Source information: This 98-nucleotide sequence from Affinibrenneria salicis belongs to the Rfam family "Guanidine-I riboswitch aptamer".
[Rfam]
RNA sequence: UUAACGGGUCACUAGGGUUCCGGUCGCAACGCGAUGCUGGUCCGAGAGUGACCGACCGUCCUCUGGCGGUUACACGGCGGGAUAAAAGCCCGGGAGAC
Numbered sequence: 001u002u003a004a005c006g007g008g009u010c011a012c013u014a015g016g017g018u019u020c021c022g023g024u025c026g027c028a029a030c031g032c033g034a035u036g037c038u039g040g041u042c043c044g045a046g047a048g049u050g051a052c053c054g055a056c057c058g059u060c061c062u063c064u065g066g067c068g069g070u071u072a073c074a075c076g077g078c079g080g081g082a083u084a085a086a087a088g089c090c091c092g093g094g095a096g097a098c
Base pairs, nucleotide, nucleotide: 007053008052009051010050011049012048015043016042020040021039022037023035024034025033026032027031054071055070056069057068058067059066060065073093075096079091080090081089

Description: The base pairs follow the family's consensus structure. Lineage of the source: Bacteria > Pseudomonadota > Enterobacterales > Pectobacteriaceae > Affinibrenneria. About the family: This family represents a conserved RNA structure found upstream of the ykkC and yxkD genes in Bacillus subtilis and related genes in other bacteria.